[Rfam]
MIR6152 microRNA precursor family: a 129-nucleotide RNA sequence from Nicotiana attenuata.

Nucleotides: 129
Stems, first nucleotide, its partner, number of pairs: 003127002009123007017115002020113002023110002026108001028106003034098001036096001037091001039090001041088003
Number, partner (000 for none) and nucleotide at each position: 001000u002000a003127g004126a005000u006000a007000g008000a009123u010122u011121a012120u013119u014118g015117u016000a017115u018114u019000c020113g021112a022000c023110u024109g025000u026108a027000c028106u029105c030104a031000c032000g033000a034098u035000a036096u037091g038000u039090a040000u041088u042087a043086g044000u045000g046000a047000a048000u049000a050000c051000a052000g053000u054000a055000a056000c057000g058000u059000a060000a061000a062000u063000a064000g065000c066000g067000c068000a069000a070000u071000u072000c073000a074000u075000g076000g077000u078000c079000u080000a081000u082000u083000c084000a085000g086043c087042u088041g089000u090039u091037u092000u093000u094000a095000a096036a097000c098034g099000g100000a101000a102000a103000a104030u105029g106028a107000a108026u109024c110023a111000a112021u113020u114018a115017a116000u117015a118014u119013a120012a121011u122010a123009g124000a125000c126004u127003c128000c129000u